This 316-nucleotide RNA sequence from Strongyloides stercoralis belongs to the Rfam family "Metazoan signal recognition particle RNA". The organism belongs to Strongyloides, within Eukaryota. The family's RNA type in Rfam is non-coding RNA gene. From the family's description: The signal recognition particle (SRP) is a universally conserved ribonucleoprotein. It is involved in the co-translational targeting of proteins to membranes. The eukaryotic SRP consists of a 300-nucleotide 7S RNA and six proteins: SRPs 72, 68, 54, 19, 14, and 9. Clan: SRP clan. It scores 173 bits against the family's covariance model.
[Rfam]
RNA sequence: GCCGGGAGUUGUGGCGAGCUCUUGUAAACUAGCUUCUCAGUGGCUUAGGAUGGGGAAGACCUGCCCAUUGGAAUAACGCUUGUCUGCUUGGUAUCGUUGACCGAGUGUCCGUGUCAAGCGUAGCGUCGAUAGGCCAACAGUUGGGGGAGCCUACUGUUGACCGGUCGUAGUAAGUUCGCUUACUUCUAAAGAGAGAUGGAUGGCUCAGGCCCGUGAGGGAGCAGGCAAAAGUCUCCGCGCUAUGACAGUGACCGGAUGGCACACGCGAGGUAUUAAGUUUCAAGUGCCAGUGGUAUACGUUCCCACUCAUUCUUUU
Numbered sequence: 001g002c003c004g005g006g007a008g009u010u011g012u013g014g015c016g017a018g019c020u021c022u023u024g025u026a027a028a029c030u031a032g033c034u035u036c037u038c039a040g041u042g043g044c045u046u047a048g049g050a051u052g053g054g055g056a057a058g059a060c061c062u063g064c065c066c067a068u069u070g071g072a073a074u075a076a077c078g079c080u081u082g083u084c085u086g087c088u089u090g091g092u093a094u095c096g097u098u099g100a101c102c103g104a105g106u107g108u109c110c111g112u113g114u115c116a117a118g119c120g121u122a123g124c125g126u127c128g129a130u131a132g133g134c135c136a137a138c139a140g141u142u143g144g145g146g147g148a149g150c151c152u153a154c155u156g157u158u159g160a161c162c163g164g165u166c167g168u169a170g171u172a173a174g175u176u177c178g179c180u181u182a183c184u185u186c187u188a189a190a191g192a193g194a195g196a197u198g199g200a201u202g203g204c205u206c207a208g209g210c211c212c213g214u215g216a217g218g219g220a221g222c223a224g225g226c227a228a229a230a231g232u233c234u235c236c237g238c239g240c241u242a243u244g245a246c247a248g249u250g251a252c253c254g255g256a257u258g259g260c261a262c263a264c265g266c267g268a269g270g271u272a273u274u275a276a277g278u279u280u281c282a283a284g285u286g287c288c289a290g291u292g293g294u295a296u297a298c299g300u301u302c303c304c305a306c307u308c309a310u311u312c313u314u315u316u
Stems, first nucleotide, its partner, number of pairs: 001044003004023007028041003047313008058302002061299001065293007077286006086278010097267001102265002105262004109255002113252004118246001119244008127167004132162002135159007143152003168191001193235005203226003210219003